Shown here is a 75-nucleotide RNA sequence from Alligator sinensis, a member of the family "Mammalian CPEB3 ribozyme". A reference for the family is Teixeira et al. (2004), "Autocatalytic RNA cleavage in the human beta-globin pre-mRNA promotes transcription termination", Nature.
[Rfam]
RNA sequence: AGUCACAAAUUUGAGGCCAUAGCAGAAGCGCUCAUGGUGUGGCCUGUAAGAUUAAAUGAAUCUGCAAAUUCUGCU
Numbered sequence: 001a002g003u004c005a006c007a008a009a010u011u012u013g014a015g016g017c018c019a020u021a022g023c024a025g026a027a028g029c030g031c032u033c034a035u036g037g038u039g040u041g042g043c044c045u046g047u048a049a050g051a052u053u054a055a056a057u058g059a060a061u062c063u064g065c066a067a068a069u070u071c072u073g074c075u
Base pairs, nucleotide, nucleotide: 015044016043017042018041021075022074023073024072025071026070027069028040029039030038049063050062051061052060053059